[Rfam]
RNA sequence: UUUAGGAGAUUUCUUUUUUAGCUAAGUUAGAAAAAACUAAAGGAGCCUAAGAAUUGCCACCAGAAAAAAUUGAAAUGGCAAUACCUCAA
Numbered sequence: 001u002u003u004a005g006g007a008g009a010u011u012u013c014u015u016u017u018u019u020a021g022c023u024a025a026g027u028u029a030g031a032a033a034a035a036a037c038u039a040a041a042g043g044a045g046c047c048u049a050a051g052a053a054u055u056g057c058c059a060c061c062a063g064a065a066a067a068a069a070u071u072g073a074a075a076u077g078g079c080a081a082u083a084c085c086u087c088a089a
Base pairs, nucleotide, nucleotide: 008047010045011044012043013042016032017031018030019029020028021027056079057078058077064071065070